Small nucleolar RNA snR60/Z15/Z230/Z193/J17: an 86-nucleotide RNA from Melanocharis versteri. NCBI's taxonomy places the organism under Eukaryota, Opisthokonta, Dipnotetrapodomorpha, Telluraves, Melanocharis. The pairing is the family consensus, mapped onto this sequence. A reference for the family is Lowe and Eddy (1999), "A computational screen for methylation guide snoRNAs in yeast", Science.
RNA sequence: AGGCUGCUGUGUGAUGACUGCAUAGUUCAGCAGAUGACCUGUGAUGAUCAAAGUUACUGUCUUUUGCCUCCUGUCUGAUGCAGCCU
Dot-bracket structure: ...((((........................................................................))))...